[Rfam]
RNA sequence: UGCAGUGUCGUGGCAUUGGUGAGGACAUCUCCAAUGGAUUGGUUCUCAUCAUUGGAUUAGUUAUCAUCAAUGCCGGUGCACUGCA
Numbered sequence: 001u002g003c004a005g006u007g008u009c010g011u012g013g014c015a016u017u018g019g020u021g022a023g024g025a026c027a028u029c030u031c032c033a034a035u036g037g038a039u040u041g042g043u044u045c046u047c048a049u050c051a052u053u054g055g056a057u058u059a060g061u062u063a064u065c066a067u068c069a070a071u072g073c074c075g076g077u078g079c080a081c082u083g084c085a
Stems, first nucleotide, its partner, number of pairs: 001085008011075012025061002030056007